[Rfam]
RNA sequence: AUGUCAUGCUGUGGGCACUUCCUUAGCAUCUCCUUGUAUCGCCCAAGCCUCACAUAGAGAUUCUCCAGUUUGUUGCACAAACUGAGUAAGAGCAAACCUGAUUGC
Numbered sequence: 001a002u003g004u005c006a007u008g009c010u011g012u013g014g015g016c017a018c019u020u021c022c023u024u025a026g027c028a029u030c031u032c033c034u035u036g037u038a039u040c041g042c043c044c045a046a047g048c049c050u051c052a053c054a055u056a057g058a059g060a061u062u063c064u065c066c067a068g069u070u071u072g073u074u075g076c077a078c079a080a081a082c083u084g085a086g087u088a089a090g091a092g093c094a095a096a097c098c099u100g101a102u103u104g105c
Base pairs, nucleotide, nucleotide: 003103005100006099055072056071058069
Rfam assigns this 105-nucleotide RNA from Apium graveolens to the family "Plant small nucleolar RNA R71". On this family, see Brown et al., Trends Plant Sci 2003: "Plant snoRNAs: functional evolution and new modes of gene expression". By type it is a C/D-box small nucleolar RNA.